Notes
This 51-nucleotide RNA from Erythropalum scandens belongs to the Rfam family "Plastid-ccsA-ndhD-2 3UTR RNA". Plastid ccsA-ndhD-2 is a non-coding RNA (ncRNA) recognised in plastids. It was found in the three prime untranslated region (3UTR) of ccsA and ndhD genes, its 3UTR location suggests a role in transcript maturation. Taxonomically the source falls in Erythropalum (Eukaryota, Viridiplantae, Embryophyta, Pentapetalae). Rfam's curators put it in the seed alignment. The literature on the family includes a 2023 paper in Plant Commun by Richter et al., "Retrograde signaling in plants: A critical review focusing on the GUN pathway and beyond".

RNA sequence: GUAUUUAUGAGAACCAUUUGAAUAAAGUAGUGAUUCAAAUGGUUCUCACUG
Numbered sequence: 001g002u003a004u005u006u007a008u009g010a011g012a013a014c015c016a017u018u019u020g021a022a023u024a025a026a027g028u029a030g031u032g033a034u035u036c037a038a039a040u041g042g043u044u045c046u047c048a049c050u051g
Stems, first nucleotide, its partner, number of pairs: 008048016025031001